[Rfam]
RNA: U1 spliceosomal RNA
Organism: Ovis aries
RNA sequence: AUACUUAUCUGGCAGAGACACCAUGAUCCUGAAAGUGGGUCUCCCAGAGCAAGGGUUGUCCUUUGCAUUUUGGAUUUGUUGAUCUCUGUGAUUUCCUCAAGUGUGGGAAACCACAUUGUAGUAACUUGUGGUAGUUGGGGGGCAGCAUGUGCGUUCUGCUUCCGU
Number, nucleotide and partner (000 for none) at each position: 001a000002u000003a000004c000005u000006u000007a000008u000009c000010u000011g000012g117013c000014a000015g043016a042017g041018a040019c000020a000021c038022c037023a036024u035025g000026a000027u000028c000029c000030u000031g000032a000033a000034a000035g024036u023037g022038g021039g000040u018041c017042u016043c015044c000045c000046a087047g086048a085049g084050c000051a083052a000053g080054g079055g000056u000057u000058g075059u074060c073061c072062u000063u000064u000065g000066c000067a000068u000069u000070u000071u000072g061073g060074a059075u058076u000077u000078g000079u054080u053081g000082a000083u051084c049085u048086c047087u046088g000089u115090g114091a000092u000093u109094u108095c000096c106097u105098c000099a000100a000101g000102u000103g000104u000105g097106g096107g000108a094109a093110a000111c000112c000113a000114c090115a089116u000117u012118g000119u000120a000121g000122u000123a000124a000125c000126u000127u000128g000129u000130g000131g000132u000133a000134g000135u000136u164137g163138g162139g161140g160141g000142g159143c000144a157145g156146c000147a154148u000149g000150u000151g000152c000153g000154u147155u000156c145157u144158g000159c142160u140161u139162c138163c137164g136165u000